[Rfam]
RNA sequence: CCAUUAAGUGAUGACGUAACAGACGGAGUGUCACGUCAUCACGCUUUAUCACGGACACCUCAUUGUCACGUCAUCAUCUUCAAUGACAUGACAUUGACGUGUCAACAAUUGUGGAUGAUGACAUAACACUCUGUGUUAUCACGUCAUCACUUAACGGAA
Numbered sequence: 001c002c003a004u005u006a007a008g009u010g011a012u013g014a015c016g017u018a019a020c021a022g023a024c025g026g027a028g029u030g031u032c033a034c035g036u037c038a039u040c041a042c043g044c045u046u047u048a049u050c051a052c053g054g055a056c057a058c059c060u061c062a063u064u065g066u067c068a069c070g071u072c073a074u075c076a077u078c079u080u081c082a083a084u085g086a087c088a089u090g091a092c093a094u095u096g097a098c099g100u101g102u103c104a105a106c107a108a109u110u111g112u113g114g115a116u117g118a119u120g121a122c123a124u125a126a127c128a129c130u131c132u133g134u135g136u137u138a139u140c141a142c143g144u145c146a147u148c149a150c151u152u153a154a155c156g157g158a159a
Stems, first nucleotide, its partner, number of pairs: 001157002004154014019139001021137002023134009033124001035122007044113001046111001048109002054103005070087005
About this RNA
A member of the RNA family "MIR4371 microRNA precursor family" from Glycine soja, 159 nucleotides long. The family's consensus secondary structure was predicted with RNAalifold. The family is grouped with related families in Rfam's "MIR4387 microRNA precursor clan". The family has 4 seed sequences and 321 matches in Rfam 15.1. Rfam links the family to the GO terms miRNA-mediated post-transcriptional gene silencing and RISC complex.